[Rfam]
RNA sequence: AUCCCGAAAGGGCAAACCCGCCGCGAGGCGGGGGCGCAAAGCGACCGGUCUCGAAAGAGAUAGCGGCGCUGCCGUG
Number, nucleotide and partner (000 for none) at each position: 001a000002u000003c000004c000005c000006g000007a000008a000009a000010g000011g000012g037013c036014a000015a000016a000017c032018c031019c030020g029021c028022c027023g000024c000025g000026a000027g022028g021029c020030g019031g018032g017033g000034g000035c000036g013037c012038a000039a000040a070041g069042c068043g067044a000045c066046c065047g064048g061049u060050c059051u058052c057053g000054a000055a000056a000057g052058a051059g050060a049061u048062a000063g000064c047065g046066g045067c043068g042069c041070u040071g000072c000073c000074g000075u000076g000
RNA: c-di-GMP-I riboswitch aptamer
Organism: Thiobacillus denitrificans